Notes: A member of the RNA family "Small nucleolar RNA SNORA9" from Esox lucius, 137 nucleotides long. It scores 98 bits against the family's covariance model. NCBI's taxonomy places the organism under Eukaryota, Teleostomi, Teleostei, Esocidae, Esox. The family's consensus secondary structure was predicted with PFOLD. ACA9 is a member of the H/ACA class of snoRNA that guide the sites of modification of uridines to pseudouridines. It is annotated as an H/ACA-box small nucleolar RNA.

[Rfam]
RNA sequence: UCGCAGGCUGUUGUCAGCGAGGCUUAGCCUGUCGUGGCUCUGUCCUUUCCUAACGCGUCUGCUAGAGAGAACUGAUAUGGUUUGAGGCCCUGCUGUGUUUCCUCCAUGGCAGGGUUAUAGGUAAACUUCAGACAUUA
Dot-bracket structure: ..((((((...........(((...((((......))))....)))..........))))))..........(((............((((((.(((.......))).)))))).............))).......